[Rfam]
RNA: LOOT RNA
RNA sequence: GGCCUAAACCGACUUAAGAAUCCUCGUGAUUCUACCGGCAUGGCCGAAAACCCCGCUAGAGAGCAAGGACCUCCCGGUCCUAGUCACUCUAGCGGGUCAUAUCGGGAAACCGGUAUGGGCCUGGCCGCAAGGUCGGGUC
Numbered sequence: 001g002g003c004c005u006a007a008a009c010c011g012a013c014u015u016a017a018g019a020a021u022c023c024u025c026g027u028g029a030u031u032c033u034a035c036c037g038g039c040a041u042g043g044c045c046g047a048a049a050a051c052c053c054c055g056c057u058a059g060a061g062a063g064c065a066a067g068g069a070c071c072u073c074c075c076g077g078u079c080c081u082a083g084u085c086a087c088u089c090u091a092g093c094g095g096g097u098c099a100u101a102u103c104g105g106g107a108a109a110c111c112g113g114u115a116u117g118g119g120c121c122u123g124g125c126c127g128c129a130a131g132g133u134c135g136g137g138u139c
Stems, first nucleotide, its partner, number of pairs: 001045004009038003052096010064083001066081006098117008118139009